[Rfam]
RNA sequence: UCCACCGUGAGGUGGAAUUUGAAGGAAGUCCAAGGCAACACUCUGAUCCGACGAACAGGAACCUCAUAGGAGGCGGAUGCAGGCGGAUAAGUUUGCUAAACAAAAUGAAGUCCGACCGUUAUCCGGGAGCCUGCAAGCGUAAAUGAGGCGGAUAGAUGGAGUAAAAGUAACAUCU
Number, nucleotide and partner (000 for none) at each position: 001u016002c015003c014004a013005c012006c011007g000008u000009g000010a000011g006012g005013u004014g003015g002016a001017a000018u000019u000020u000021g000022a000023a000024g000025g000026a000027a000028g175029u000030c000031c000032a000033a000034g000035g168036c167037a000038a000039c000040a162041c161042u160043c159044u158045g157046a153047u152048c151049c150050g149051a000052c000053g000054a000055a000056c000057a000058g000059g000060a000061a000062c148063c147064u146065c145066a144067u143068a000069g000070g000071a000072g000073g140074c139075g138076g000077a000078u135079g134080c133081a132082g131083g130084c000085g113086g112087a111088u110089a000090a000091g106092u105093u104094u103095g000096c000097u000098a000099a000100a000101c000102a000103a094104a093105a092106u091107g000108a000109a000110g088111u087112c086113c085114g000115a000116c000117c000118g000119u000120u000121a000122u000123c000124c000125g000126g000127g000128a000129g000130c083131c082132u081133g080134c079135a078136a000137g000138c075139g074140u073141a000142a000143a067144u066145g065146a064147g063148g062149c050150g049151g048152a047153u046154a000155g000156a000157u045158g044159g043160a042161g041162u040163a000164a000165a000166a000167g036168u035169a000170a000171c000172a000173u000174c000175u028

This 175-nucleotide sequence from Fodinibius roseus belongs to the Rfam family "Group II catalytic intron D1-D4-3". Rfam links the family to the GO term Group II intron splicing. For this family Rfam cites "The ins and outs of group II introns" (Bonen and Vogel, Trends Genet, 2001). About the family: Group II introns are found in rRNA, tRNA and mRNA of organelles in fungi, plants and protists, and also in mRNA in bacteria.